[Rfam]
RNA sequence: AAGCUUUGUGAAUUCACAGGCCCUAUCUUAUGGUAUGAACUGAGUACGCGAUGAUAUUUAUGGUGCGUAUCGAGGGCUUAUCAUGAGACAAGGCCAUGAAUUCGCGAAGCGU
Dot-bracket structure: ..((((((((((((((..(((..(.((((((((((.(..((..(((.(((.............))).)))..))..).)))))))))).)..))).))))))))))))))..
Rfam assigns this 112-nucleotide sequence from Oryza punctata to the family "MIR1428 microRNA precursor family". The source organism's lineage runs through Eukaryota, Viridiplantae, Streptophytina, Oryzeae and Oryza. A reference for the family is Sunkar et al. (2008), "Identification of novel and candidate miRNAs in rice by high throughput sequencing", BMC Plant Biol. The match comes from Rfam's covariance-model search (96 bits).